The family of this 75-nucleotide sequence from Myotis davidii is "mir-9223 microRNA precursor family". The organism belongs to Myotis, within Eukaryota.
RNA sequence: AGUGGUUCUCGGGUGAUGCACUUUGGAAUUGGACUCCCUCUUCUCUGGUUCCAGGUGUGUCACUGGAGAACCGCA
Number, nucleotide and partner (000 for none) at each position: 001a000002g074003u073004g000005g071006u070007u069008c068009u067010c066011g000012g064013g063014u062015g061016a060017u059018g000019c057020a056021c055022u054023u053024u000025g052026g051027a050028a049029u048030u047031g046032g045033a044034c000035u000036c000037c000038c000039u000040c000041u000042u000043c000044u033045c032046u031047g030048g029049u028050u027051c026052c025053a023054g022055g021056u020057g019058u000059g017060u016061c015062a014063c013064u012065g000066g010067a009068g008069a007070a006071c005072c000073g003074c002075a000

The match comes from Rfam's covariance-model search (71 bits).